[Rfam]
RNA sequence: GGAAGGGAAGCGUGCCUGGUGGUGCGGCCGGACUUCAAAUUCGGUUGGGGGUGUCAGUCGCUCCCGGGUGGGUUCGACUCCCACUUCCUUCC
Dot-bracket structure: ((((((((..((((((....))))))((((((.......)))))).(((((.........)))))...((((.......)))).))))))))
RNA: Selenocysteine transfer RNA
Organism: Thiobacillus sp.